[Rfam]
Rfam assigns this 147-nucleotide RNA from Peribacillus saganii to the family "Ribosomal protein L10 leader". Its family is annotated with regulation of gene expression in the Gene Ontology. A search with the family's covariance model found it, with a score of 78 bits. Taxonomically the source falls in Peribacillus (Bacteria, Bacillati, Bacilli, Caryophanales). The family's consensus secondary structure was predicted with CMfinder. Rfam classes the family as a cis-regulatory leader.

RNA sequence: AAAUGAAUAUCAUUUGUACCGUAGACAGUAGGUGCUCACUAUGAGCUUAAUUUCCUGCCUAGGUAAUUUCGAUAAUAUAGUCUUUGACUAUGAUUUGAUUUUACUGCCUUCAUGUCUACUAGAUAUGAAGGCUUUUUUAUGGUCGGU
Numbered sequence: 001a002a003a004u005g006a007a008u009a010u011c012a013u014u015u016g017u018a019c020c021g022u023a024g025a026c027a028g029u030a031g032g033u034g035c036u037c038a039c040u041a042u043g044a045g046c047u048u049a050a051u052u053u054c055c056u057g058c059c060u061a062g063g064u065a066a067u068u069u070c071g072a073u074a075a076u077a078u079a080g081u082c083u084u085u086g087a088c089u090a091u092g093a094u095u096u097g098a099u100u101u102u103a104c105u106g107c108c109u110u111c112a113u114g115u116c117u118a119c120u121a122g123a124u125a126u127g128a129a130g131g132c133u134u135u136u137u138u139a140u141g142g143u144c145g146g147u
Stems, first nucleotide, its partner, number of pairs: 028058005034046003106132010